A member of the RNA family "SAH (S-adenosyl-L-homocysteine) riboswitch aptamer" from Massilia cavernae, 71 nucleotides long. The literature on the family includes a 2008 paper in Mol Cell by Wang et al., "Riboswitches that sense S-adenosylhomocysteine and activate genes involved in coenzyme recycling". Rfam links the family to the GO terms S-adenosylhomocysteine metabolic process and regulation of gene expression.
RNA sequence: AUUUCCGAGGAGCGUUGCGACGAAUCCAUUUCGCCAGGCUCGGAGUCUUACAGCAACCGCGCUCACGUUAC
Numbered sequence: 001a002u003u004u005c006c007g008a009g010g011a012g013c014g015u016u017g018c019g020a021c022g023a024a025u026c027c028a029u030u031u032c033g034c035c036a037g038g039c040u041c042g043g044a045g046u047c048u049u050a051c052a053g054c055a056a057c058c059g060c061g062c063u064c065a066c067g068u069u070a071c
Stems, first nucleotide, its partner, number of pairs: 003045006021033004